[Rfam]
RNA sequence: GGACGAUGACGACUUCGGCAAACAAGGUCUCGUUCGUCGUAAUGGCGUAAUCCGCCUUGCCGACCAUCCUGCUAUAUCACCACCCAUAAGCCGAGUCC
Numbered sequence: 001g002g003a004c005g006a007u008g009a010c011g012a013c014u015u016c017g018g019c020a021a022a023c024a025a026g027g028u029c030u031c032g033u034u035c036g037u038c039g040u041a042a043u044g045g046c047g048u049a050a051u052c053c054g055c056c057u058u059g060c061c062g063a064c065c066a067u068c069c070u071g072c073u074a075u076a077u078c079a080c081c082a083c084c085c086a087u088a089a090g091c092c093g094a095g096u097c098c
Stems, first nucleotide, its partner, number of pairs: 001098004049058002
Source information
A member of the RNA family "Small nucleolar RNA Z43" from Colocasia esculenta, 98 nucleotides long. For this family Rfam cites "The high diversity of snoRNAs in plants: identification and comparative study of 120 snoRNA genes from Oryza sativa" (Chen et al., Nucleic Acids Res, 2003). The family's consensus secondary structure was predicted with PFOLD.